[Rfam]
RNA sequence: UUGCGCAAUAGCCUUGUAUGUGAGCAAUCUUCGCAAUCCUCCUGCAGCGUUGGGCCCGUAAGAUCUCUCCCAAGAAUCACGGCCCGGACAGCACGUCCACGGCGAUCCACCCAAUCAGGCGGAUCGCGGCCCGCCGACCCCACAGGGGCGCCCCCGCCACCGGGCUACGCACUACCCAGAAGGUGGAGCGAGGUGAGCCGGCGCCAACAGCGACGAGCCAGGACGAGUUUCCCGAAGGGAGGUCAAUGACCUCCCU
Numbered sequence: 001u002u003g004c005g006c007a008a009u010a011g012c013c014u015u016g017u018a019u020g021u022g023a024g025c026a027a028u029c030u031u032c033g034c035a036a037u038c039c040u041c042c043u044g045c046a047g048c049g050u051u052g053g054g055c056c057c058g059u060a061a062g063a064u065c066u067c068u069c070c071c072a073a074g075a076a077u078c079a080c081g082g083c084c085c086g087g088a089c090a091g092c093a094c095g096u097c098c099a100c101g102g103c104g105a106u107c108c109a110c111c112c113a114a115u116c117a118g119g120c121g122g123a124u125c126g127c128g129g130c131c132c133g134c135c136g137a138c139c140c141c142a143c144a145g146g147g148g149c150g151c152c153c154c155c156g157c158c159a160c161c162g163g164g165c166u167a168c169g170c171a172c173u174a175c176c177c178a179g180a181a182g183g184u185g186g187a188g189c190g191a192g193g194u195g196a197g198c199c200g201g202c203g204c205c206a207a208c209a210g211c212g213a214c215g216a217g218c219c220a221g222g223a224c225g226a227g228u229u230u231c232c233c234g235a236a237g238g239g240a241g242g243u244c245a246a247u248g249a250c251c252u253c254c255c256u
Base pairs, nucleotide, nucleotide: 002011044056077196078195079194080193082165083164084163085162086098087097088096089095102127103126104125105124106123110119111118128158129157130156133154136149138147139146140145168190169189170188172186173185174184175183176182197218198217199215200214202212203211204210236256237255238254239253241251242250243249244248
RNA: Pseudomonas sRNA P24